This 79-nucleotide RNA from Litomosoides sigmodontis belongs to the Rfam family "SmY spliceosomal RNA".
By type it is a spliceosomal small nuclear RNA.
The literature on the family includes a 2007 paper in RNA by MacMorris et al., "A novel family of C. elegans snRNPs contains proteins associated with trans-splicing".
The family has 61 seed sequences and 408 matches in Rfam 15.1.
NCBI's taxonomy places the organism under Eukaryota, Metazoa, Chromadorea, Spirurina, Litomosoides.
[Rfam]
RNA sequence: GGGCUGUCUAAUCUUUACCGAGGGCCUUGUCCAAGACCCGGGGAACAAUUUUUGACUGCCUGCCCAGGAGGGGAGGCAA
Numbered sequence: 001g002g003g004c005u006g007u008c009u010a011a012u013c014u015u016u017a018c019c020g021a022g023g024g025c026c027u028u029g030u031c032c033a034a035g036a037c038c039c040g041g042g043g044a045a046c047a048a049u050u051u052u053u054g055a056c057u058g059c060c061u062g063c064c065c066a067g068g069a070g071g072g073g074a075g076g077c078a079a
Base pairs, nucleotide, nucleotide: 022039023038024037026035027034028033057078058077059076060075061074063072064071065070